[Rfam]
RNA sequence: UGCAAUAUCCAUUAAAGGAGUAGUUCCCCAACCUAGAGCUACUUUACCAUAUUUCGAAUUC
Numbered sequence: 001u002g003c004a005a006u007a008u009c010c011a012u013u014a015a016a017g018g019a020g021u022a023g024u025u026c027c028c029c030a031a032c033c034u035a036g037a038g039c040u041a042c043u044u045u046a047c048c049a050u051a052u053u054u055c056g057a058a059u060u061c
Stems, first nucleotide, its partner, number of pairs: 017045010
Rfam assigns this 61-nucleotide sequence from Castanea mollissima to the family "Plastid-psbN 5UTR RNA".
For this family Rfam cites "The primary transcriptome of barley chloroplasts: numerous noncoding RNAs and the dominating role of the plastid-encoded RNA polymerase" (Zhelyazkova et al., Plant Cell, 2012).
Pairs were carried over by alignment from the consensus structure, which was predicted with LocARNA.
Rfam describes the family as follows. Plastid psbN is a non-coding RNA (ncRNA) recognised in plastids. It was reported as a conserved 11 stem-loop in the prime untranslated region (5UTR) of psbN genes.
Rfam classes the family as a cis-regulatory element.